[Rfam]
RNA sequence: GUCCAUGAGGAUUAUCCAUCUGUUUGAGAUGUAGAUUUCUCCAAGACCCUGUUUCAGGGAGAACCUACUUGGGGUGCUACAUUAUUCUUGAAAUUACUGGAUCUCCUGAGAC
Numbered sequence: 001g002u003c004c005a006u007g008a009g010g011a012u013u014a015u016c017c018a019u020c021u022g023u024u025u026g027a028g029a030u031g032u033a034g035a036u037u038u039c040u041c042c043a044a045g046a047c048c049c050u051g052u053u054u055c056a057g058g059g060a061g062a063a064c065c066u067a068c069u070u071g072g073g074g075u076g077c078u079a080c081a082u083u084a085u086u087c088u089u090g091a092a093a094u095u096a097c098u099g100g101a102u103c104u105c106c107u108g109a110g111a112c
Stems, first nucleotide, its partner, number of pairs: 001112003047059005
The record is a 112-nucleotide sequence from Corchorus olitorius, which matches "Small nucleolar RNA Z278" in Rfam. About the family: snoZ278 is a C/D box small nucleolar RNA. Its methylation guide targets have not been reported. By type it is a C/D-box small nucleolar RNA. A reference for the family is Chen et al. (2003), "The high diversity of snoRNAs in plants: identification and comparative study of 120 snoRNA genes from Oryza sativa", Nucleic Acids Res. Its family is annotated with nucleolus and RNA processing in the Gene Ontology.